[Rfam]
RNA: Group II catalytic intron D1-D4-1
RNA sequence: AAUCAGUGAUGGUAACAUCGGUCGAAAAAGGUCUGCCACAAGAAGUCAGCUGAGGUCGUAGUAGGUAAAGACAUCUAUACCAAAGGAC
Numbered sequence: 001a002a003u004c005a006g007u008g009a010u011g012g013u014a015a016c017a018u019c020g021g022u023c024g025a026a027a028a029a030g031g032u033c034u035g036c037c038a039c040a041a042g043a044a045g046u047c048a049g050c051u052g053a054g055g056u057c058g059u060a061g062u063a064g065g066u067a068a069a070g071a072c073a074u075c076u077a078u079a080c081c082a083a084a085g086g087a088c
Stems, first nucleotide, its partner, number of pairs: 005022001007020005046053002055088003064081004069076001